[Rfam]
RNA sequence: UCUGUGGAUCGUUACAGCAAAUGAGAGUAGCUAGUGAUAUUGGGUAUUUGGUGUCAUGGUAAAAUCAGACGGGAGGAAGCAGAAA
Numbered sequence: 001u002c003u004g005u006g007g008a009u010c011g012u013u014a015c016a017g018c019a020a021a022u023g024a025g026a027g028u029a030g031c032u033a034g035u036g037a038u039a040u041u042g043g044g045u046a047u048u049u050g051g052u053g054u055c056a057u058g059g060u061a062a063a064a065u066c067a068g069a070c071g072g073g074a075g076g077a078a079g080c081a082g083a084a085a
Stems, first nucleotide, its partner, number of pairs: 001083005009072005022067003030060003034057009
Dot-bracket structure: (((((...(((((........(((.....(((.(((((((((......))))))))))))....))))))))......)))))..